The family of this 110-nucleotide RNA from Thermosyntropha lipolytica is "Glycine riboswitch aptamer".
NCBI's taxonomy places the organism under Bacteria, Clostridia, Eubacteriales, Syntrophomonadaceae, Thermosyntropha lipolytica.
A reference for the family is Mandal et al. (2004), "A glycine-dependent riboswitch that uses cooperative binding to control gene expression", Science.

RNA sequence: AUGACAGAAGCGAGAGAAUUAAGGCUUAAGCCUUAAUACCGAAGGAGCAAGCCAGAUUACUUAGUCCGGUAUCUGGUGAAACUCUCAGGUUUCCGUAUCGCUUCUGGACG
Numbered sequence: 001a002u003g004a005c006a007g008a009a010g011c012g013a014g015a016g017a018a019u020u021a022a023g024g025c026u027u028a029a030g031c032c033u034u035a036a037u038a039c040c041g042a043a044g045g046a047g048c049a050a051g052c053c054a055g056a057u058u059a060c061u062u063a064g065u066c067c068g069g070u071a072u073c074u075g076g077u078g079a080a081a082c083u084c085u086c087a088g089g090u091u092u093c094c095g096u097a098u099c100g101c102u103u104c105u106g107g108a109c110g
Stems, first nucleotide, its partner, number of pairs: 006105008020036001022034002038090003041086002045084003051077007